[Rfam]
RNA sequence: CACGAAGGAACAUCGGCUAAGAUCUGGCACGUCCUGUGCCAAACGCCGACGCCAGCACAUCCUGUGCA
Numbered sequence: 001c002a003c004g005a006a007g008g009a010a011c012a013u014c015g016g017c018u019a020a021g022a023u024c025u026g027g028c029a030c031g032u033c034c035u036g037u038g039c040c041a042a043a044c045g046c047c048g049a050c051g052c053c054a055g056c057a058c059a060u061c062c063u064g065u066g067c068a
Base pairs, nucleotide, nucleotide: 011051013049014048015047016046017045026040027039028038029037030036055067056066057065058064

A member of the RNA family "Bacillaceae-1 RNA" from Peribacillus saganii, 68 nucleotides long. The source organism's lineage runs through Bacteria, Bacillati, Bacilli, Bacillaceae and Peribacillus. It is annotated as a small RNA. A search with the family's covariance model found it, with a score of 65 bits. Pairs were carried over by alignment from the consensus structure, which is taken from published work.